[Rfam]
RNA: ASpks TB sRNA
RNA sequence: CUUGACGGAACCCAACUGCAGCGGGAUCUCCCGAUCCUGACCGUACGUGGCCAGCAGCGCCUGCGCCUC
Number, nucleotide and partner (000 for none) at each position: 001c000002u000003u000004g000005a000006c000007g000008g000009a000010a000011c000012c000013c000014a000015a000016c024017u023018g000019c000020a000021g000022c000023g017024g016025g000026a000027u000028c000029u065030c063031c000032c059033g058034a000035u000036c000037c054038u053039g052040a000041c050042c049043g048044u000045a000046c000047g000048u043049g042050g041051c000052c039053a038054g037055c000056a000057g000058c033059g032060c000061c000062u000063g030064c000065g029066c000067c000068u000069c000